[Rfam]
RNA sequence: GAAAUGCGCUACGAGGUAAGGCUGGUCAGCCGCCUUGGCCCCGAGUCAUGGCCGCGACGGGUAACCGGAGUGGGCAAGCGUUGACAGGGGUUGUUGUGGGCCAGGUAUUGAGCUCCGAAAAUUCUCGCCCUUGGGGUGCCGACGGUAUGCCCGUUCACGGAAGGCAACACUGGCCGAGGCGCAAAUGGCAAGUCCCGGCCGGGCCCCACGGAGUCAUAGACCC
Numbered sequence: 001g002a003a004a005u006g007c008g009c010u011a012c013g014a015g016g017u018a019a020g021g022c023u024g025g026u027c028a029g030c031c032g033c034c035u036u037g038g039c040c041c042c043g044a045g046u047c048a049u050g051g052c053c054g055c056g057a058c059g060g061g062u063a064a065c066c067g068g069a070g071u072g073g074g075c076a077a078g079c080g081u082u083g084a085c086a087g088g089g090g091u092u093g094u095u096g097u098g099g100g101c102c103a104g105g106u107a108u109u110g111a112g113c114u115c116c117g118a119a120a121a122u123u124c125u126c127g128c129c130c131u132u133g134g135g136g137u138g139c140c141g142a143c144g145g146u147a148u149g150c151c152c153g154u155u156c157a158c159g160g161a162a163g164g165c166a167a168c169a170c171u172g173g174c175c176g177a178g179g180c181g182c183a184a185a186u187g188g189c190a191a192g193u194c195c196c197g198g199c200c201g202g203g204c205c206c207c208a209c210g211g212a213g214u215c216a217u218a219g220a221c222c223c
Base pairs, nucleotide, nucleotide: 012037013036014035015034016033020031021030022029023028025189026188039090040089041088042087045085046084047083048082049080050079051075052074053072054071055070058067059066060065110215112214113213114212115211116210117209132208133207134206135205136204137203138165139164140163143159144158170202171201172200173199174198175197176196178194179193180192
Shown here is a 223-nucleotide sequence from Pseudomonas sp. SSM44, a member of the family "Group II catalytic intron D1-D4-6". NCBI's taxonomy places the organism under Bacteria, Pseudomonadati, Pseudomonadota, Pseudomonadales, Pseudomonas. The literature on the family includes a 2001 paper in Trends Genet by Bonen and Vogel, "The ins and outs of group II introns".